[Rfam]
RNA: FMN riboswitch aptamer (RFN element)
Organism: Ensifer meliloti
Nucleotides: 165
Stems, first nucleotide, its partner, number of pairs: 005161006017029003031145002033134002035080004075132002083110002114130005136148003
Number, partner (000 for none) and nucleotide at each position: 001000a002000a003000g004000c005161g006160u007159u008158c009157u010156c011000a012000g013000g014000g015000c016000g017029g018028g019027g020000u021000g022000a023000a024000a025000u026000u027019c028018c029017c030000c031145a032144c033134c034133g035080g036079c037078g038077g039000u040000a041000g042000c043000g044000a045000a046000c047000a048000c049000a050000g051000g052000a053000u054000c055000g056000g057000g058000a059000a060000u061000g062000g063000u064000c065000g066000g067000u068000g069000g070000u071000c072000g073000g074000a075132g076131c077038c078037c079036g080035c081000g082000a083110g084109c085000g086000c087000u088000u089000c090000g091000c092000a093000u094000u095000u096000c097000g098000u099000g100000c101000g102000a103000a104000g105000g106000u107000c108000a109084g110083c111000a112000g113000a114130u115129c116128c117127g118126g119000u120000c121000g122000a123000a124000u125000u126118c127117c128116g129115g130114a131076g132075c133034c134033g135000a136148c137147g138146g139000u140000u141000a142000u143000a144032g145031u146138c147137c148136g149000g150000a151000u152000g153000g154000a155000a156010g157009a158008g159007a160006g161005c162000a163000a164000g165000c